ALIL pseudoknot: a 117-nucleotide sequence from Azoarcus sp. KH32C. The source organism's lineage runs through Bacteria, Pseudomonadota, Betaproteobacteria, Zoogloeaceae and Azoarcus. Pairs were carried over by alignment from the consensus structure, which is taken from published work. Rfam classes the family as a cis-regulatory element. It scores 117 bits against the family's covariance model. Rfam 15.1 lists 2,146 matches to the family in 1,098 species.

[Rfam]
RNA sequence: CGCGUAUUUCGCGCAGGCGGAGCUCGACCGCCGCAACAAGUGAUGAACAGUUUCAUCGACACGCACCGCGAGCGCUUCGGGGUCGAGCCGAUCUGCAGGGUGCUGCAGGUUGCCCCG
Number, nucleotide and partner (000 for none) at each position: 001c000002g000003c000004g000005u000006a000007u000008u000009u000010c000011g000012c000013g000014c000015a000016g032017g031018c030019g029020g028021a000022g000023c000024u000025c000026g000027a000028c020029c019030g018031c017032c016033g000034c000035a000036a000037c000038a000039a000040g000041u000042g000043a000044u000045g000046a000047a000048c000049a000050g000051u000052u000053u000054c000055a000056u000057c000058g000059a000060c000061a000062c000063g000064c000065a000066c000067c000068g000069c000070g000071a000072g000073c000074g000075c000076u000077u000078c117079g116080g115081g114082g113083u000084c000085g000086a000087g000088c000089c112090g111091a000092u109093c108094u107095g106096c105097a104098g103099g000100g000101u000102g000103c098104u097105g096106c095107a094108g093109g092110u000111u090112g089113c082114c081115c080116c079117g078